[Rfam]
Nucleotides: 132
Stems, first nucleotide, its partner, number of pairs: 016100004021095014036079004044059004060073004104127010
Number, partner (000 for none) and nucleotide at each position: 001000u002000u003000u004000g005000a006000a007000u008000c009000u010000u011000u012000u013000a014000u015000u016100a017099u018098u019097a020000u021095c022094u023093u024092u025091u026090u027089c028088u029087u030086u031085u032084c033083u034082g035000u036079u037078u038077u039076u040000c041000a042000c043000c044059u045058g046057c047056c048000u049000u050000g051000g052000g053000c054000c055000c056047g057046g058045u059044a060073c061072g062071a063070g064000u065000g066000u067000u068000u069000u070063u071062u072061c073060g074000g075000u076039g077038a078037a079036a080000a081000a082034c083033a084032g085031a086030a087029a088028a089027g090026a091025a092024a093023a094022a095021g096000a097019u098018a099017a100016u101000a102000a103000u104127a105126a106125a107124a108123g109122a110121u111120u112119c113118a114000a115000a116000u117000u118113u119112g120111a121110a122109u123108c124107u125106u126105u127104u128000a129000u130000u131000a132000u
Rfam assigns this 132-nucleotide RNA from Diaphorina citri to the family "Phenylalanine leader peptide". Gene Ontology term of the family: cellular amino acid metabolic process. By type it is a cis-regulatory leader. Taxonomically the source falls in Diaphorina (Eukaryota, Metazoa, Neoptera, Hemiptera). The family's consensus secondary structure was predicted with CMfinder.